The family of this 59-nucleotide sequence from Pelotomaculum schinkii is "Na+ riboswitch aptamer (DUF1646)".

RNA sequence: UGUUGGACGGACAUCAUGUUCGUUUUCAAGGAACCGGAAGGCUUCUGGGGUGGGGAGUC
Numbered sequence: 001u002g003u004u005g006g007a008c009g010g011a012c013a014u015c016a017u018g019u020u021c022g023u024u025u026u027c028a029a030g031g032a033a034c035c036g037g038a039a040g041g042c043u044u045c046u047g048g049g050g051u052g053g054g055g056a057g058u059c
Base pairs, nucleotide, nucleotide: 003029004028005027006024007023008022009021010020011019040059041058042057043056044055045054046053